[Rfam]
RNA sequence: AAAUGUCUUCAGGGCAGGGUGAAAAUCCCGAUCGGCGGUAUAGUCCGCUACCCGCAGUAUUGCGGCUGACCCGGUGUAAUUCCGGGACCGACAGUGACGCGCAUAGUGCUCCAACGCGCGAAGUCUGGAUGGAAGAAGAUGUGU
Numbered sequence: 001a002a003a004u005g006u007c008u009u010c011a012g013g014g015c016a017g018g019g020u021g022a023a024a025a026u027c028c029c030g031a032u033c034g035g036c037g038g039u040a041u042a043g044u045c046c047g048c049u050a051c052c053c054g055c056a057g058u059a060u061u062g063c064g065g066c067u068g069a070c071c072c073g074g075u076g077u078a079a080u081u082c083c084g085g086g087a088c089c090g091a092c093a094g095u096g097a098c099g100c101g102c103a104u105a106g107u108g109c110u111c112c113a114a115c116g117c118g119c120g121a122a123g124u125c126u127g128g129a130u131g132g133a134a135g136a137a138g139a140u141g142u143g144u
Base pairs, nucleotide, nucleotide: 003142004141005140006139007138008137009136010135017029018028019027033090034089035048036047037046038045043088044087052065053064070086071085072084073083074082092127093126094125
The family of this 144-nucleotide sequence from Pseudoflavonifractor capillosus is "FMN riboswitch aptamer (RFN element)". The RFN element is a highly conserved domain that is found frequently in the 5'-untranslated regions of prokaryotic mRNAs that encode for flavin mononucleotide (FMN) biosynthesis and transport proteins. This element is a metabolite-dependent riboswitch that directly binds FMN in the absence of proteins. In Bacillus subtilis, the riboswitch most likely controls gene expression by causing premature transcription termination within the 5' untranslated region of the ribDEAHT operon and precluding access to the ribosome-binding site of ypaA mRNA.The FMN riboswitch structure, reported in present an FMN-bound six-stem junction, adopts a butterfly-like scaffold, stapled together by opposingly directed but nearly identically folded peripheral domains. Lineage of the source: Bacteria > Bacillati > Bacillota > Pseudoflavonifractor > Pseudoflavonifractor capillosus.